FMN riboswitch aptamer (RFN element): a 154-nucleotide sequence from Naumannella cuiyingiana. The family's consensus secondary structure is taken from published work. The literature on the family includes a 2002 paper in Nucleic Acids Res by Vitreschak et al., "Regulation of riboflavin biosynthesis and transport genes in bacteria by transcriptional and translational attenuation". From the family's description: The RFN element is a highly conserved domain that is found frequently in the 5'-untranslated regions of prokaryotic mRNAs that encode for flavin mononucleotide (FMN) biosynthesis and transport proteins. It scores 80 bits against the family's covariance model.
[Rfam]
RNA sequence: GACCCCUCGCGGGGCACGGUGCAAUUCCUGACCGGCGGUGACAGUCCGCGAACCUCGGUCGCCCGAUGCGACCCUGGCCGACCCGGCGCAAUUCCGGGACCGACGGUGUUCGGUCGCUCGAGGCGAUCGUCAGUCCGGAUGAGAGCGAGGGUGC
Dot-bracket structure: ...(((((((.......((.......))....((((((.....[[))))...((.....................))....(((((.......)))))]])).(((............................))).......)))))))...